[Rfam]
Annotation
The record is a 66-nucleotide RNA sequence from Noviherbaspirillum galbum, which matches "Betaproteobacteria toxic small RNA" in Rfam. Taxonomically the source falls in Noviherbaspirillum (Bacteria, Pseudomonadota, Betaproteobacteria, Oxalobacteraceae). On this family, see Kimelman et al., Genome Res 2012: "A vast collection of microbial genes that are toxic to bacteria". About the family: Overexpression in amino aid rich medium attenuates growth, suggesting role in repressing amino acid intake and metabolism.

RNA sequence: UGUCUCCUCCAACUCUCCUUGAAUUGGAUUCAGCCCGCGAGCCGCAAGGCCAGUGGGCUUUUUUUU
Numbered sequence: 001u002g003u004c005u006c007c008u009c010c011a012a013c014u015c016u017c018c019u020u021g022a023a024u025u026g027g028a029u030u031c032a033g034c035c036c037g038c039g040a041g042c043c044g045c046a047a048g049g050c051c052a053g054u055g056g057g058c059u060u061u062u063u064u065u066u
Stems, first nucleotide, its partner, number of pairs: 008028005014022002032059007